The record is a 78-nucleotide sequence from Tetraodon nigroviridis, which matches "mir-17 microRNA precursor family" in Rfam. Taxonomically the source falls in Tetraodon (Eukaryota, Clupeocephala, Tetradontoidea, Tetraodontidae). Rfam describes the family as follows. This family represents the microRNA (miRNA) precursor mir-17, family, which includes mir-20, mir-91, and mir-103. miRNAs are transcribed as ~70nt precursors (modelled here) and subsequently processed by the Dicer enzyme to give a ~22nt product. In this case the mature sequence comes from the 3' arm of the precursor. The extents of the hairpin precursors are not generally known and are estimated based on hairpin prediction.
[Rfam]
RNA sequence: CACCGUAGUGUCAAAGUGCUUACAGUGCAGGUAGUUAAAAGAAAUCUACUGCAGUGAAGGCACUUUCAGCACUAUUCU
Numbered sequence: 001c002a003c004c005g006u007a008g009u010g011u012c013a014a015a016g017u018g019c020u021u022a023c024a025g026u027g028c029a030g031g032u033a034g035u036u037a038a039a040a041g042a043a044a045u046c047u048a049c050u051g052c053a054g055u056g057a058a059g060g061c062a063c064u065u066u067c068a069g070c071a072c073u074a075u076u077c078u
Stems, first nucleotide, its partner, number of pairs: 005075004010070002014065008023056002026053003030050005

Its family is annotated with miRNA-mediated post-transcriptional gene silencing and RISC complex in the Gene Ontology.